[Rfam]
RNA sequence: CCAGCUCGAAGGCCACGAAUGCUCAUCACGUACAGGUUGCUUCAUGCAUCCACAUUUCUGAGCGGGCUAAGGUCUGAGUAUUUCAAUCCCCCUUGAUUGGCUCUAGCGGAGUCUGGCUGUAAUCAGCUGCGCGACGUACCAGAAAAGCAGCUUCAUUUUCAUAUCCCAAGAUCCUGUUCCAGCAGAGGAGGGCGAGAAUGAAAGCUUUGAAAGCGUUGCGGGGAUCGGGCAAACUUGUGUCCAUCGUGUAGCAGUCCUAUCGCGCGUGCGCCUGUCACAAUGGCGCUCAGGGACGUAGAGACAUCUGAGCGAGAUACUCAGUCCCCGGGCUAUCGUCGCGGUACAUUCUUCCCAUCUAAAUCGCUUAGAUGAUGUACUUCUGUCACCCUUAGGAUCUACUCCUGAGUCCUGGUGCACAUGCAGACUGCAGUCGAGGUAUCCUCCCACGGUGCCUACCCUACCGACAAGCGUCUCCGCUUGUCCGCUGCCAGCGUAUACGCUCAGCGUGAAUAACCGCUCACGAUUAGAGACGACCCAACACCAUGUUGUAGCUCUCCUUGUGUAUGAGGGAUAUACGCGAUGGCACUAGUUUGUCCUUGAGUUCACUUCGUGGCUCGCGUAUCCUUCGUGGAUCGCGAAACUCGAUUCAGACUACUCUUGGGCUGG
Number, nucleotide and partner (000 for none) at each position: 001c666002c665003a664004g663005c000006u000007c660008g659009a658010a000011g000012g614013c613014c612015a611016c610017g609018a608019a000020u064021g063022c062023u061024c060025a000026u000027c000028a000029c000030g000031u000032a000033c000034a000035g051036g050037u000038u048039g047040c046041u000042u000043c000044a000045u000046g040047c039048a038049u000050c036051c035052a000053c000054a000055u000056u000057u000058c000059u000060g024061a023062g022063c021064g020065g000066g000067c000068u000069a000070a000071g000072g000073u000074c650075u649076g648077a647078g646079u000080a000081u000082u000083u000084c000085a000086a000087u000088c000089c223090c222091c221092c220093u000094u000095g000096a000097u000098u000099g113100g112101c111102u110103c109104u000105a000106g000107c000108g000109g103110a102111g101112u100113c099114u129115g128116g127117c126118u125119g124120u000121a000122a000123u000124c119125a118126g117127c116128u115129g114130c000131g219132c218133g217134a216135c215136g214137u213138a000139c000140c000141a000142g000143a000144a000145a000146a000147g000148c000149a000150g205151c204152u203153u000154c000155a000156u000157u000158u000159u000160c000161a000162u000163a000164u000165c000166c000167c000168a000169a000170g000171a000172u000173c000174c000175u000176g000177u000178u000179c000180c000181a000182g000183c000184a000185g000186a000187g000188g000189a000190g000191g000192g000193c000194g000195a000196g000197a000198a000199u000200g000201a000202a000203a152204g151205c150206u000207u000208u000209g000210a000211a000212a000213g137214c136215g135216u134217u133218g132219c131220g092221g091222g090223g089224a000225u000226c000227g000228g000229g000230c000231a000232a000233a000234c000235u000236u000237g000238u000239g000240u000241c000242c000243a000244u000245c000246g000247u000248g000249u000250a000251g000252c000253a000254g000255u000256c000257c000258u000259a000260u000261c000262g000263c000264g000265c000266g000267u000268g000269c000270g000271c000272c000273u000274g000275u000276c000277a000278c000279a000280a000281u000282g000283g000284c000285g000286c000287u000288c000289a000290g000291g000292g000293a000294c000295g000296u000297a000298g000299a000300g000301a000302c000303a000304u000305c000306u000307g000308a000309g000310c000311g000312a000313g000314a000315u000316a000317c000318u000319c000320a000321g000322u000323c000324c000325c000326c000327g000328g000329g000330c000331u000332a000333u000334c000335g000336u000337c000338g000339c000340g000341g000342u000343a000344c000345a000346u000347u000348c000349u000350u000351c000352c000353c000354a000355u000356c000357u000358a000359a000360a000361u000362c000363g000364c000365u000366u000367a000368g000369a000370u000371g000372a000373u000374g000375u000376a000377c000378u000379u000380c000381u000382g000383u000384c000385a000386c000387c000388c000389u000390u000391a000392g000393g000394a000395u000396c000397u000398a000399c000400u000401c000402c000403u000404g000405a000406g000407u000408c000409c000410u000411g000412g000413u000414g000415c000416a000417c000418a000419u000420g000421c000422a000423g000424a000425c000426u000427g000428c000429a000430g000431u000432c000433g000434a000435g000436g000437u000438a000439u000440c000441c000442u000443c000444c000445c000446a000447c000448g000449g000450u000451g000452c000453c000454u000455a000456c000457c000458c000459u000460a000461c000462c000463g000464a000465c000466a000467a000468g000469c000470g000471u000472c000473u000474c000475c000476g000477c000478u000479u000480g000481u000482c000483c000484g000485c000486u000487g000488c000489c000490a000491g000492c000493g000494u000495a000496u000497a000498c000499g000500c000501u000502c000503a000504g000505c000506g000507u000508g000509a000510a000511u000512a000513a000514c000515c000516g000517c000518u000519c000520a000521c000522g000523a000524u000525u000526a000527g000528a000529g000530a000531c000532g000533a000534c000535c000536c000537a000538a000539c000540a000541c000542c000543a000544u000545g000546u000547u000548g000549u000550a000551g000552c000553u000554c000555u000556c000557c000558u000559u000560g000561u000562g000563u000564a000565u000566g000567a000568g000569g000570g000571a000572u000573a000574u000575a000576c000577g000578c000579g000580a000581u000582g000583g000584c000585a000586c000587u000588a000589g000590u000591u000592u000593g000594u000595c000596c000597u000598u000599g000600a000601g000602u000603u000604c000605a000606c000607u000608u018609c017610g016611u015612g014613g013614c012615u638616c637617g636618c635619g634620u000621a000622u000623c000624c000625u000626u000627c000628g000629u000630g000631g000632a000633u000634c619635g618636c617637g616638a615639a000640a000641c000642u000643c000644g000645a000646u078647u077648c076649a075650g074651a000652c000653u000654a000655c000656u000657c000658u009659u008660g007661g000662g000663c004664u003665g002666g001